[Rfam]
Background
This 80-nucleotide RNA sequence from Bradyrhizobium diazoefficiens belongs to the Rfam family "Group II catalytic intron D1-D4-1". The sequence is in the family's curated seed alignment. Group II introns are found in rRNA, tRNA and mRNA of organelles in fungi, plants and protists, and also in mRNA in bacteria. On this family, see Bonen and Vogel, Trends Genet 2001: "The ins and outs of group II introns". Pairs were carried over by alignment from the consensus structure.

RNA sequence: UGAGACCGUCGCAAGACGGCCUGACCGCAGCGCAGAAGUCAGCCGAGGGCGUAGUAGGCGGCAGCGCGCCGCUGAAGGCC
Number, nucleotide and partner (000 for none) at each position: 001u023002g022003a000004g021005a000006c019007c018008g017009u016010c015011g000012c000013a000014a000015g010016a009017c008018g007019g006020c000021c004022u002023g001024a000025c000026c000027g000028c000029a000030g000031c000032g000033c000034a000035g000036a000037a000038g000039u046040c045041a000042g000043c000044c000045g040046a039047g000048g080049g079050c078051g000052u000053a000054g000055u000056a000057g073058g072059c071060g070061g069062c068063a000064g000065c000066g000067c000068g062069c061070c060071g059072c058073u057074g000075a000076a000077g000078g050079c049080c048